[Rfam]
RNA sequence: AUGAUGCAAAUGGGAGAGACCCGAUUAGGGCGCCGAAGGGGUAAGUCAAAUUUGCCAGAUUUGAUGAUACUCUCAGGCAAAAGUACUGUUUGCUGACA
Numbered sequence: 001a002u003g004a005u006g007c008a009a010a011u012g013g014g015a016g017a018g019a020c021c022c023g024a025u026u027a028g029g030g031c032g033c034c035g036a037a038g039g040g041g042u043a044a045g046u047c048a049a050a051u052u053u054g055c056c057a058g059a060u061u062u063g064a065u066g067a068u069a070c071u072c073u074c075a076g077g078c079a080a081a082a083g084u085a086c087u088g089u090u091u092g093c094u095g096a097c098a
Stems, first nucleotide, its partner, number of pairs: 006093008020030003032078003035074002039072003045065009
A member of the RNA family "Glycine riboswitch aptamer" from Fonticella tunisiensis, 98 nucleotides long.